Rfam assigns this 266-nucleotide RNA from Candidatus Brocadiaceae bacterium S225 to the family "Bacterial large signal recognition particle RNA". It scores 178 bits against the family's covariance model. By type it is a non-coding RNA gene.
RNA sequence: CCGUGCUAGACGGGGAGCUAGCGGUUCCUUGUAACCUGCAAACCGCUUAUGCAGGGUCGAUCGCUUUUUGGAGGUUUUUCUGACUUUUGGUACUUUUUAAGUAAGUGGUGUUGAAGGCUGGGUCUCAUGCAAUGGGGCUAUGUGAAUCUGGUCAGAUGCGGAAGCAAGCAGCCAUAAGCAUUUGUACUCAUGUGCCGUGGGGUUGCCUGGUUGGAGCUAACUGCCUGGAAAGUUCAGCGGAAAGAGAAUCGAAGAAAAGUGCACGG
Number, nucleotide and partner (000 for none) at each position: 001c266002c265003g264004u263005g262006c261007u000008a000009g058010a057011c056012g030013g029014g028015g027016a026017g025018c024019u023020a000021g000022c000023g019024g018025u017026u016027c015028c014029u013030u012031g000032u000033a000034a000035c055036c054037u053038g052039c051040a050041a000042a000043c000044c000045g000046c000047u000048u000049a000050u040051g039052c038053a037054g036055g035056g011057u010058c009059g000060a000061u000062c000063g000064c259065u258066u257067u256068u255069u254070g000071g000072a000073g250074g249075u248076u247077u246078u000079u000080c244081u243082g000083a000084c240085u239086u000087u237088u236089g235090g000091u000092a000093c000094u230095u000096u000097u228098u227099a226100a000101g224102u223103a000104a000105g221106u220107g218108g217109u216110g000111u000112u000113g000114a000115a000116g212117g211118c210119u209120g208121g207122g206123u205124c201125u200126c199127a198128u197129g196130c192131a191132a000133u190134g189135g188136g187137g000138c000139u000140a181141u180142g179143u178144g000145a000146a000147u000148c000149u174150g173151g172152u171153c000154a000155g000156a000157u166158g165159c164160g000161g000162a000163a000164g159165c158166a157167a000168g000169c000170a000171g152172c151173c150174a149175u000176a000177a000178g143179c142180a141181u140182u000183u000184g000185u000186a000187c136188u135189c134190a133191u131192g130193u000194g000195c000196c129197g128198u127199g126200g125201g124202g000203u000204u000205g123206c122207c121208u120209g119210g118211u117212u116213g000214g000215a000216g109217c108218u107219a000220a106221c105222u000223g102224c101225c000226u099227g098228g097229a000230a094231a000232g000233u000234u000235c089236a088237g087238c000239g085240g084241a000242a000243a081244g080245a000246g077247a076248a075249u074250c073251g000252a000253a000254g069255a068256a067257a066258a065259g064260u000261g006262c005263a004264c003265g002266g001